Source information
A member of the RNA family "U7 small nuclear RNA" from Prolemur simus, 63 nucleotides long. The organism belongs to Prolemur, within Eukaryota.
[Rfam]
RNA sequence: AAGUGUUACAGCUCCUUUAGAAUUUGUCUAGCAGGUUUGCCUGUCCUCACUGGAAGAGCCCCC
Numbered sequence: 001a002a003g004u005g006u007u008a009c010a011g012c013u014c015c016u017u018u019a020g021a022a023u024u025u026g027u028c029u030a031g032c033a034g035g036u037u038u039g040c041c042u043g044u045c046c047u048c049a050c051u052g053g054a055a056g057a058g059c060c061c062c063c
Stems, first nucleotide, its partner, number of pairs: 034060005040053002043050002

Animal histone pre-mRNAs are spliced by a different mechanism than nuclear pre-mRNAs and self-splicing introns.